Rfam assigns this 86-nucleotide sequence from Thalassiosira oceanica to the family "Selenocysteine transfer RNA".
RNA sequence: GUGUGACUGACCCUGCCUGGUGGUGGGUACUGGCUUCAAACCAGUGGGCGACUAGCGUCGCAGUGGUUCAAUUCCACCUGUCGCAC
Numbered sequence: 001g002u003g004u005g006a007c008u009g010a011c012c013c014u015g016c017c018u019g020g021u022g023g024u025g026g027g028u029a030c031u032g033g034c035u036u037c038a039a040a041c042c043a044g045u046g047g048g049c050g051a052c053u054a055g056c057g058u059c060g061c062a063g064u065g066g067u068u069c070a071a072u073u074c075c076a077c078c079u080g081u082c083g084c085a086c
Stems, first nucleotide, its partner, number of pairs: 001086007009078001012027006028046006048061005063077004
Overview: A search with the family's covariance model found it, with a score of 75 bits. The family's consensus secondary structure is taken from published work.